Shown here is a 99-nucleotide RNA from Flintibacter faecis, a member of the family "SAM riboswitch aptamer (S box leader)". Taxonomically the source falls in Flintibacter (Bacteria, Bacillota, Clostridia, Eubacteriales). It scores 84 bits against the family's covariance model. Pairs were carried over by alignment from the consensus structure, which is taken from published work.
RNA sequence: GCCUUAUCAAGAGUGGUUGAGGGACCGGCCCUAUGACACCACGGCAACCUGCUUAAAUGCAAGGUGCCAAAUCCGGCGAAGCGUAUCGCAAGAUGAGGG
Numbered sequence: 001g002c003c004u005u006a007u008c009a010a011g012a013g014u015g016g017u018u019g020a021g022g023g024a025c026c027g028g029c030c031c032u033a034u035g036a037c038a039c040c041a042c043g044g045c046a047a048c049c050u051g052c053u054u055a056a057a058u059g060c061a062a063g064g065u066g067c068c069a070a071a072u073c074c075g076g077c078g079a080a081g082c083g084u085a086u087c088g089c090a091a092g093a094u095g096a097g098g099g
Base pairs, nucleotide, nucleotide: 002098003097004096005095006094007093008092013042014041015040016039017038021031022030023029025076026075027074028073043068044067045066046065048064049063050061051060052059072091077088078087079086